[Rfam]
RNA sequence: UGCGCGGGACGGCUCGCGUCUUUUAUGUAUUCAUCCGGGACGGCCCGG
Numbered sequence: 001u002g003c004g005c006g007g008g009a010c011g012g013c014u015c016g017c018g019u020c021u022u023u024u025a026u027g028u029a030u031u032c033a034u035c036c037g038g039g040a041c042g043g044c045c046c047g048g
Base pairs, nucleotide, nucleotide: 002019003018004017005016006015007014008013035048036047037046038045039044